RNA sequence: GGUCCGAUGCCACGUCGCCGGUAGCAAAAAUGAAAAAGCGGUGACCGGCGAUGCUAUGAUUGGACCGAAAUAAAUCUAAUGCUUCGCCUUCUGAUAGGAACCCGUGGAUCUCAACUUUUGUGAUCCACGGUGCCGUUUUCGGCGAUUACAUUC
Numbered sequence: 001g002g003u004c005c006g007a008u009g010c011c012a013c014g015u016c017g018c019c020g021g022u023a024g025c026a027a028a029a030a031u032g033a034a035a036a037a038g039c040g041g042u043g044a045c046c047g048g049c050g051a052u053g054c055u056a057u058g059a060u061u062g063g064a065c066c067g068a069a070a071u072a073a074a075u076c077u078a079a080u081g082c083u084u085c086g087c088c089u090u091c092u093g094a095u096a097g098g099a100a101c102c103c104g105u106g107g108a109u110c111u112c113a114a115c116u117u118u119u120g121u122g123a124u125c126c127a128c129g130g131u132g133c134c135g136u137u138u139u140c141g142g143c144g145a146u147u148a149c150a151u152u153c
Stems, first nucleotide, its partner, number of pairs: 002065007009057001013053006020046003024039002084145005097134002102130003106126005

Shown here is a 153-nucleotide RNA sequence from Hibiscus syriacus, a member of the family "Small nucleolar RNA snoR2/U65". By type it is an H/ACA-box small nucleolar RNA. A search with the family's covariance model found it, with a score of 140 bits. The family has 11 seed sequences and 908 matches in Rfam 15.1.